Record summary:
Mammalian CPEB3 ribozyme: a 76-nucleotide RNA from Alligator mississippiensis.

[Rfam]
RNA sequence: GUUGCAAAUUCAAGGCCGUAGCAGAAGUGCUCAUAGUGCGGCCAUGUCAGAUUCCAACAAAUCUGCAAAUUCUGCU
Numbered sequence: 001g002u003u004g005c006a007a008a009u010u011c012a013a014g015g016c017c018g019u020a021g022c023a024g025a026a027g028u029g030c031u032c033a034u035a036g037u038g039c040g041g042c043c044a045u046g047u048c049a050g051a052u053u054c055c056a057a058c059a060a061a062u063c064u065g066c067a068a069a070u071u072c073u074g075c076u
Base pairs, nucleotide, nucleotide: 014043015042016041017040020076021075022074023073024072025071026070027039028038029037048065049064050063051062052061053060
Gene Ontology term of the family: RNA nuclease activity.
NCBI's taxonomy places the organism under Eukaryota, Deuterostomia, Chordata, Sarcopterygii, Alligator.
The base pairs follow the family's consensus structure, which is taken from published work.